This 58-nucleotide RNA sequence from Flexivirga oryzae belongs to the Rfam family "msiK RNA".

[Rfam]
RNA sequence: GUCGAACCCCAUUCACAACGGAUCGUCCGGCACGUACCUGCCGGUGAAGGAGUUGCAU
Numbered sequence: 001g002u003c004g005a006a007c008c009c010c011a012u013u014c015a016c017a018a019c020g021g022a023u024c025g026u027c028c029g030g031c032a033c034g035u036a037c038c039u040g041c042c043g044g045u046g047a048a049g050g051a052g053u054u055g056c057a058u
Stems, first nucleotide, its partner, number of pairs: 009050002012048004027044006

Lineage of the source: Bacteria > Bacillati > Actinomycetota > Dermacoccaceae > Flexivirga.